The family of this 112-nucleotide sequence from Theropithecus gelada is "Y RNA". Lineage of the source: Eukaryota > Chordata > Primates > Cercopithecinae > Theropithecus. The literature on the family includes a 2007 paper in Theory Biosci by Mosig et al., "Evolution of the vertebrate Y RNA cluster".
RNA sequence: AGCUCGUCUGAAAGGUAGAGAGUUAUCUCAAUUGAUUGUUCACAGUCAGUUACAGACUGAACUCUGUUCUACUCUUUCUCCCCUUCUCACUAUUACACUUGACUAGUUUUAA
Numbered sequence: 001a002g003c004u005c006g007u008c009u010g011a012a013a014g015g016u017a018g019a020g021a022g023u024u025a026u027c028u029c030a031a032u033u034g035a036u037u038g039u040u041c042a043c044a045g046u047c048a049g050u051u052a053c054a055g056a057c058u059g060a061a062c063u064c065u066g067u068u069c070u071a072c073u074c075u076u077u078c079u080c081c082c083c084u085u086c087u088c089a090c091u092a093u094u095a096c097a098c099u100u101g102a103c104u105a106g107u108u109u110u111a112a
Stems, first nucleotide, its partner, number of pairs: 001108004006103003010100002015096002017091002020088003045073001048070002